This 135-nucleotide sequence belongs to the Rfam family "radC RNA". Rfam 15.1 lists 500 matches to the family in 142 species. The family's consensus secondary structure is taken from published work.
RNA sequence: UGGCAUCCGCUGUUGCCGACAUUGUCGGCUUCGCCAGCAGCCAGGGUUUCAGGCUGCCGUGGAGCUUGCUCCAUGCCACCCGCCAGUUCGCCGUCGCAUCGCUCGGGCGAACGCUGCCCAUGCGGGCAUCGAUGC
Numbered sequence: 001u002g003g004c005a006u007c008c009g010c011u012g013u014u015g016c017c018g019a020c021a022u023u024g025u026c027g028g029c030u031u032c033g034c035c036a037g038c039a040g041c042c043a044g045g046g047u048u049u050c051a052g053g054c055u056g057c058c059g060u061g062g063a064g065c066u067u068g069c070u071c072c073a074u075g076c077c078a079c080c081c082g083c084c085a086g087u088u089c090g091c092c093g094u095c096g097c098a099u100c101g102c103u104c105g106g107g108c109g110a111a112c113g114c115u116g117c118c119c120a121u122g123c124g125g126g127c128a129u130c131g132a133u134g135c
Stems, first nucleotide, its partner, number of pairs: 011033002015029006037057006044079001045077002058075007107135003115128005